[Rfam]
RNA sequence: GCGGAAAAAGGCAAACCCGCUGAAAGGCGGGGACGCAAAACUACCGGUCUACGGGAUUACCUACGACAGCGGGGUUGCCCAUA
Number, nucleotide and partner (000 for none) at each position: 001g000002c000003g080004g079005a000006a000007a000008a000009a000010g000011g036012c035013a000014a000015a000016c031017c030018c029019g028020c027021u026022g000023a000024a000025a000026g021027g020028c019029g018030g017031g016032g000033a000034c069035g012036c011037a000038a000039a076040a075041c074042u073043a000044c072045c071046g070047g067048u066049c065050u000051a000052c000053g000054g000055g000056a000057u000058u000059a000060c000061c000062u000063a000064c000065g049066a048067c047068a000069g034070c046071g045072g044073g042074g041075u040076u039077g000078c000079c004080c003081a000082u000083a000